[Rfam]
RNA sequence: CCCCUUUCCACGCGGCCCUUAAACACCUAUAUCAACCCUGUUCCGGCAACGGGACUAUGGACAUAAACGCGCUCGUAAUAAGCGGAUCGGACCCGGGGGCGGUACCCGGCGGCUCCACCAAUAUCCCGUCGUUGGCGGACAGAGGGGCCGAAAUAGGAUCGACGAACGUCUAAAGGGGUUAGCUUUGUCCCGGUGAGGUACCACCGUUAUCGGUCCGACAAGUACAGUUGCCAACGACAACCGUGCUCCGGUCGCGCUCGCAGCCUAAGCUGCGCGCAAGAUCGAAACUUAAGCCCUUGCGCCUAGCCGCGUAAGGCGGGGUUCGCAGGCACCUGGCAACAGAAGCCUGCACU
Numbered sequence: 001c002c003c004c005u006u007u008c009c010a011c012g013c014g015g016c017c018c019u020u021a022a023a024c025a026c027c028u029a030u031a032u033c034a035a036c037c038c039u040g041u042u043c044c045g046g047c048a049a050c051g052g053g054a055c056u057a058u059g060g061a062c063a064u065a066a067a068c069g070c071g072c073u074c075g076u077a078a079u080a081a082g083c084g085g086a087u088c089g090g091a092c093c094c095g096g097g098g099g100c101g102g103u104a105c106c107c108g109g110c111g112g113c114u115c116c117a118c119c120a121a122u123a124u125c126c127c128g129u130c131g132u133u134g135g136c137g138g139a140c141a142g143a144g145g146g147g148c149c150g151a152a153a154u155a156g157g158a159u160c161g162a163c164g165a166a167c168g169u170c171u172a173a174a175g176g177g178g179u180u181a182g183c184u185u186u187g188u189c190c191c192g193g194u195g196a197g198g199u200a201c202c203a204c205c206g207u208u209a210u211c212g213g214u215c216c217g218a219c220a221a222g223u224a225c226a227g228u229u230g231c232c233a234a235c236g237a238c239a240a241c242c243g244u245g246c247u248c249c250g251g252u253c254g255c256g257c258u259c260g261c262a263g264c265c266u267a268a269g270c271u272g273c274g275c276g277c278a279a280g281a282u283c284g285a286a287a288c289u290u291a292a293g294c295c296c297u298u299g300c301g302c303c304u305a306g307c308c309g310c311g312u313a314a315g316g317c318g319g320g321g322u323u324c325g326c327a328g329g330c331a332c333c334u335g336g337c338a339a340c341a342g343a344a345g346c347c348u349g350c351a352c353u
Stems, first nucleotide, its partner, number of pairs: 040055005059190005069183002071179004083168002087165003093109005110150007191206004197216002200214003319334004325350006